Description: The record is a 125-nucleotide RNA sequence from Rattus norvegicus, which matches "Small nucleolar RNA SNORA38" in Rfam. It scores 92 bits against the family's covariance model. About the family: ACA38 is a member of the H/ACA class of snoRNA that guide the sites of modification of uridines to pseudouridines. Gene Ontology terms of the family: Cajal body, RNA processing and nucleolus.
[Rfam]
RNA sequence: UCCUCCUGCAAAGGCGUGUUUUUGGUUCCCUGUCCUUGGCCAUGUAAGAAUUGGAAGCAAAGAAAUAUGGUGGAUUUGGAAAGGUCUGGGACCACCUUGCCCCACAGGCUCAGGAUCCCACAGAG
Numbered sequence: 001u002c003c004u005c006c007u008g009c010a011a012a013g014g015c016g017u018g019u020u021u022u023u024g025g026u027u028c029c030c031u032g033u034c035c036u037u038g039g040c041c042a043u044g045u046a047a048g049a050a051u052u053g054g055a056a057g058c059a060a061a062g063a064a065a066u067a068u069g070g071u072g073g074a075u076u077u078g079g080a081a082a083g084g085u086c087u088g089g090g091a092c093c094a095c096c097u098u099g100c101c102c103c104a105c106a107g108g109c110u111c112a113g114g115a116u117c118c119c120a121c122a123g124a125g
Stems, first nucleotide, its partner, number of pairs: 002057001004055003015044004020039002024030002072118003076115001094110001096108004
Dot-bracket structure: .(.(((........((((.((..((...)).......)).))))........))).)..............(((.(.................(.((((.....)))).)....)))).......